[Rfam]
RNA sequence: AGAACGAACAUUAAUUAUCCCUAGGGCCAUGGGAUAAACAAAAACUCUGCAAAACCAAGUUAGCACACCCUAUAAUGGUUCUAGCACAAUUACUAACCUAUAGCUCUAAUACCAGCUGAUGGUAAAAACCU
Numbered sequence: 001a002g003a004a005c006g007a008a009c010a011u012u013a014a015u016u017a018u019c020c021c022u023a024g025g026g027c028c029a030u031g032g033g034a035u036a037a038a039c040a041a042a043a044a045c046u047c048u049g050c051a052a053a054a055c056c057a058a059g060u061u062a063g064c065a066c067a068c069c070c071u072a073u074a075a076u077g078g079u080u081c082u083a084g085c086a087c088a089a090u091u092a093c094u095a096a097c098c099u100a101u102a103g104c105u106c107u108a109a110u111a112c113c114a115g116c117u118g119a120u121g122g123u124a125a126a127a128a129c130c131u
Stems, first nucleotide, its partner, number of pairs: 009121005015115002022108006029101005048086002053080002056077002061072003
Description:
Rfam assigns this 131-nucleotide RNA from Vitis rotundifolia to the family "MIR845_2 microRNA precursor family". The family has 2 seed sequences and 180 matches in Rfam 15.1. Taxonomically the source falls in Vitis (Eukaryota, Mesangiospermae, Pentapetalae, Vitaceae). The match comes from Rfam's covariance-model search (145 bits).